[Rfam]
RNA sequence: CUUUCCUCAUGGGUUUAGGGUCUGAAAGACUCAGACAGUUGGUGUUGUCAUCAGCUUCAUCUCUAUAAUACCCACGAGAUAGGAGUUAAAUAACAGCACUAAAUUU
Dot-bracket structure: ........................................(((((((.....((((((.((((............))))..))))))......)))))))......
Numbered sequence: 001c002u003u004u005c006c007u008c009a010u011g012g013g014u015u016u017a018g019g020g021u022c023u024g025a026a027a028g029a030c031u032c033a034g035a036c037a038g039u040u041g042g043u044g045u046u047g048u049c050a051u052c053a054g055c056u057u058c059a060u061c062u063c064u065a066u067a068a069u070a071c072c073c074a075c076g077a078g079a080u081a082g083g084a085g086u087u088a089a090a091u092a093a094c095a096g097c098a099c100u101a102a103a104u105u106u
Stems, first nucleotide, its partner, number of pairs: 041100007053087006060079004